[Rfam]
This 91-nucleotide RNA from Gulbenkiania mobilis belongs to the Rfam family "Neisseria metabolic switch regulator b (RcoF1/NgncR163)".
On this family, see Bauer et al., Microbiology 2017: "The sibling sRNAs NgncR_162 and NgncR_163 of Neisseria gonorrhoeae participate in the expression control of metabolic, transport and regulatory proteins".
The base pairs follow the family's consensus structure, which was predicted with RNAfold.
Its family is annotated with protein binding, tricarboxylic acid cycle and mRNA binding in the Gene Ontology.
Sibling sRNA described and independently named in three publications. NgncR163 is N. gonorrhoeae while the others are N. meningitidis RNAs. RcoF1 stands for: RNA regulating colonization factor 1.

RNA sequence: UCGUUGAGAUGCAGCAAUUGCUUCUUGAUAGUUUCUCCUCUAUUUCUCCUUUGUAGACUUGGCGCGGAAGAUUUUUCUUCCGCGCAUUUUU
Number, nucleotide and partner (000 for none) at each position: 001u000002c000003g029004u028005u027006g026007a025008g024009a023010u000011g021012c000013a000014g000015c000016a000017a000018u000019u000020g000021c011022u000023u009024c008025u007026u006027g005028a004029u003030a000031g000032u000033u000034u000035c000036u000037c000038c000039u057040c056041u055042a054043u053044u000045u000046c000047u000048c000049c000050u000051u000052u000053g043054u042055a041056g040057a039058c000059u000060u000061g000062g085063c084064g083065c082066g081067g080068a079069a078070g077071a076072u000073u000074u000075u000076u071077c070078u069079u068080c067081c066082g065083c064084g063085c062086a000087u000088u000089u000090u000091u000